Small nucleolar RNA SNORD115: an 82-nucleotide sequence from Carlito syrichta.
The base pairs follow the family's consensus structure, which was predicted with PFOLD.
A search with the family's covariance model found it, with a score of 52 bits.
Rfam classes the family as a C/D-box small nucleolar RNA.
The literature on the family includes a 2000 paper in Proc Natl Acad Sci U S A by Cavaille et al., "Identification of brain-specific and imprinted small nucleolar RNA genes exhibiting an unusual genomic organization".
The organism belongs to Carlito, within Eukaryota.

RNA sequence: GGGUCAAUGAUGAAAAUCUUUGUCUUGACUCAAGUGAGGUGUUGUCUUAAAAGUCUUGUGCAAUAGAGUUAUGGUGAGGACC
Numbered sequence: 001g002g003g004u005c006a007a008u009g010a011u012g013a014a015a016a017u018c019u020u021u022g023u024c025u026u027g028a029c030u031c032a033a034g035u036g037a038g039g040u041g042u043u044g045u046c047u048u049a050a051a052a053g054u055c056u057u058g059u060g061c062a063a064u065a066g067a068g069u070u071a072u073g074g075u076g077a078g079g080a081c082c
Stems, first nucleotide, its partner, number of pairs: 001082002004079001005076002008073002